[Rfam]
Nucleotides: 132
Stems, first nucleotide, its partner, number of pairs: 003054003007050001010048001012046004016041008068124003071120005081114003085110002088106001091102002
Number, partner (000 for none) and nucleotide at each position: 001000g002000a003054c004053c005052u006000g007050u008000g009000g010048g011000u012046u013045g014044c015043c016041c017040a018039u019038u020037c021036g022035c023034u024000u025000g026000c027000a028000g029000a030000a031000a032000c033000c034023a035022g036021u037020g038019a039018a040017u041016g042000u043015g044014g045013u046012g047000u048010c049000a050007a051000a052005a053004g054003g055000c056000a057000u058000c059000a060000a061000u062000u063000a064000a065000a066000u067000u068124c069123u070122u071120u072119g073118c074117a075116g076000c077000c078000a079000u080000u081114u082113c083112c084000g085110g086109c087000c088106c089000u090000u091102g092101a093000a094000c095000u096000u097000g098000a099000u100000a101092u102091c103000u104000u105000u106088g107000a108000u109086g110085u111000a112083g113082g114081a115000a116075c117074u118073g119072c120071a121000u122070g123069a124068g125000u126000u127000a128000c129000a130000g131000u132000u
A member of the RNA family "Small nucleolar RNA SNORA13" from Loxodonta africana, 132 nucleotides long. Its Rfam clan is "SNORA13 clan". Rfam classes the family as an H/ACA-box small nucleolar RNA. Lineage of the source: Eukaryota > Teleostomi > Dipnotetrapodomorpha > Afrotheria > Loxodonta. Rfam's curators write: ACA13 is a member of the H/ACA class of snoRNA that guide the sites of modification of uridines to pseudouridines. Its family is annotated with RNA processing and nucleolus in the Gene Ontology.